[Rfam]
RNA sequence: AUUCAAGCGAAUAAAGCGUUUACAAUAAAUCGUAAAGGGGAAUACAAAUGGGAAUUAUGGGAACUAUUGUUUGUCAAACAUGCAACGAUACGAUUGAAUCUUUUGAAAACGAAAAAGUGAGUGUUUUAUACUCGAAAUGCGAUAACUGCCAUUCUCACGAAGAGAAGUAAUUAUAUGAUAGGGCCUAUCUGAAUUAUUCAGAUAAGCUCUUU
Number, nucleotide and partner (000 for none) at each position: 001a000002u000003u000004c000005a000006a000007g000008c000009g000010a000011a000012u000013a000014a000015a000016g118017c117018g000019u116020u115021u114022a000023c000024a000025a000026u000027a000028a000029a000030u106031c105032g104033u000034a102035a101036a000037g000038g000039g000040g000041a000042a099043u098044a000045c000046a000047a000048a000049u000050g000051g000052g000053a000054a000055u000056u000057a000058u093059g000060g091061g000062a089063a000064c087065u000066a000067u000068u000069g000070u085071u084072u000073g000074u000075c000076a000077a000078a000079c000080a000081u000082g000083c000084a071085a070086c000087g064088a000089u062090a000091c060092g000093a058094u000095u000096g000097a000098a043099u042100c000101u035102u034103u000104u032105g031106a030107a000108a000109a000110c000111g000112a000113a000114a021115a020116a019117g017118u016119g000120a000121g000122u000123g000124u000125u000126u000127u000128a000129u000130a000131c000132u000133c000134g000135a000136a000137a000138u000139g000140c000141g154142a000143u000144a000145a153146c000147u000148g000149c000150c000151a000152u000153u145154c141155u000156c000157a000158c000159g000160a000161a000162g000163a000164g000165a000166a000167g000168u000169a000170a000171u000172u000173a000174u000175a000176u000177g000178a000179u000180a210181g209182g208183g207184c206185c000186u204187a203188u202189c201190u200191g199192a198193a000194u000195u000196a000197u000198u192199c191200a190201g189202a188203u187204a186205a000206g184207c183208u182209c181210u180211u000212u000